About this RNA: mir-9236 microRNA precursor family: an 83-nucleotide RNA sequence from Eptesicus fuscus. Its family is annotated with miRNA-mediated post-transcriptional gene silencing and RISC complex in the Gene Ontology. Pairs were carried over by alignment from the consensus structure, which was predicted with RNAalifold.

RNA sequence: UUUACUUCUCUAGUUGUAGGACGUCCAUUCAACCAGCUUCCCAGUGGUUCUGGAUGAUGGUUGUUCUGUAUUUUAGUUGUAAU
Numbered sequence: 001u002u003u004a005c006u007u008c009u010c011u012a013g014u015u016g017u018a019g020g021a022c023g024u025c026c027a028u029u030c031a032a033c034c035a036g037c038u039u040c041c042c043a044g045u046g047g048u049u050c051u052g053g054a055u056g057a058u059g060g061u062u063g064u065u066c067u068g069u070a071u072u073u074u075a076g077u078u079g080u081a082a083u
Stems, first nucleotide, its partner, number of pairs: 002082004010076004015070009026056006034047001036045003